[Rfam]
RNA sequence: AAGAACUGUGAUUUAUAACAGACCUGUAAUGAUUUGCGAAUAUGAUUGCAGAUUUUCUUGAACAUCUAAGGGACUGAGUUCUU
Numbered sequence: 001a002a003g004a005a006c007u008g009u010g011a012u013u014u015a016u017a018a019c020a021g022a023c024c025u026g027u028a029a030u031g032a033u034u035u036g037c038g039a040a041u042a043u044g045a046u047u048g049c050a051g052a053u054u055u056u057c058u059u060g061a062a063c064a065u066c067u068a069a070g071g072g073a074c075u076g077a078g079u080u081c082u083u
Stems, first nucleotide, its partner, number of pairs: 002082005
Dot-bracket structure: .(((((.......................................................................))))).
RNA: Small nucleolar RNA SNORD25